[Rfam]
RNA sequence: CGGGAUUAGAUCCCGUUGGAAUGUGGUCCUGCUGGCAGGGCUGAACCGUGAA
Number, nucleotide and partner (000 for none) at each position: 001c015002g014003g013004g012005a011006u000007u000008a000009g000010a000011u005012c004013c003014c002015g001016u000017u048018g047019g046020a000021a000022u000023g000024u000025g042026g041027u040028c039029c038030u000031g000032c000033u000034g000035g000036c000037a000038g029039g028040g027041c026042u025043g000044a000045a000046c019047c018048g017049u000050g000051a000052a000
Shown here is a 52-nucleotide RNA from Methanosarcina barkeri, a member of the family "eL15-Euryarchaeota ribosomal protein leader".
NCBI's taxonomy places the organism under Archaea, Methanobacteriati, Methanosarcinales, Methanosarcina, Methanosarcina barkeri.
For this family Rfam cites "Discovery of 20 novel ribosomal leader candidates in bacteria and archaea" (Eckert and Weinberg, BMC Microbiol, 2020).
The sequence is in the family's curated seed alignment.
By type it is a cis-regulatory leader.